[Rfam]
Small nucleolar RNA SNORD27: a 68-nucleotide RNA from Nannospalax galili.
A search with the family's covariance model found it, with a score of 66 bits.
Taxonomically the source falls in Nannospalax (Eukaryota, Teleostomi, Myomorpha, Spalacidae).
Nucleotides: 068
Stems, first nucleotide, its partner, number of pairs: 001068004
Number, partner (000 for none) and nucleotide at each position: 001068c002067u003066u004065c005000a006000u007000g008000a009000u010000g011000a012000a013000u014000a015000u016000a017000a018000a019000a020000u021000g022000a023000c024000a025000a026000g027000c028000a029000u030000a031000u032000g033000g034000c035000u036000g037000a038000a039000u040000u041000g042000c043000a044000g045000u046000g047000a048000u049000g050000u051000c052000a053000g054000c055000u056000c057000a058000c059000u060000a061000c062000u063000g064000a065004g066003a067002a068001g